[Rfam]
RNA sequence: GAAGAGGAACCGAAAAUCUUAAAGAGUAGGAA
Numbered sequence: 001g002a003a004g005a006g007g008a009a010c011c012g013a014a015a016a017u018c019u020u021a022a023a024g025a026g027u028a029g030g031a032a
Stems, first nucleotide, its partner, number of pairs: 002020004010030002
RNA: DUF805b RNA